[Rfam]
RNA sequence: ACAGUACAAACUGAGCAGGCGAUAAAUGGAUGAACCAUUUGUGGGGCCGGGUCGCGCGUAUGCGACAGCAGAUGUAAGCAGCAUCUGCGGGACAGUA
Numbered sequence: 001a002c003a004g005u006a007c008a009a010a011c012u013g014a015g016c017a018g019g020c021g022a023u024a025a026a027u028g029g030a031u032g033a034a035c036c037a038u039u040u041g042u043g044g045g046g047c048c049g050g051g052u053c054g055c056g057c058g059u060a061u062g063c064g065a066c067a068g069c070a071g072a073u074g075u076a077a078g079c080a081g082c083a084u085c086u087g088c089g090g091g092a093c094a095g096u097a
Stems, first nucleotide, its partner, number of pairs: 010096004016091001018048003022042006051066005068088006
RNA: NiCo (Nickel/Cobalt) riboswitch aptamer